Source information:
pemK RNA: a 96-nucleotide sequence. Rfam's curators put it in the seed alignment.
[Rfam]
RNA sequence: ACAAUGAUACUCCCGUCCAGUCACAGCCCCGCGAAAGUGGGAUCACGCAAUGAGGGCGGCUCGGAGAGAACCUCGGAGGGGUGAAAUUUCCCGUGG
Numbered sequence: 001a002c003a004a005u006g007a008u009a010c011u012c013c014c015g016u017c018c019a020g021u022c023a024c025a026g027c028c029c030c031g032c033g034a035a036a037g038u039g040g041g042a043u044c045a046c047g048c049a050a051u052g053a054g055g056g057c058g059g060c061u062c063g064g065a066g067a068g069a070a071c072c073u074c075g076g077a078g079g080g081g082u083g084a085a086a087u088u089u090c091c092c093g094u095g096g
Base pairs, nucleotide, nucleotide: 012093013059014058015057016056017055018054060078061077062076064074065073066072079092080091081090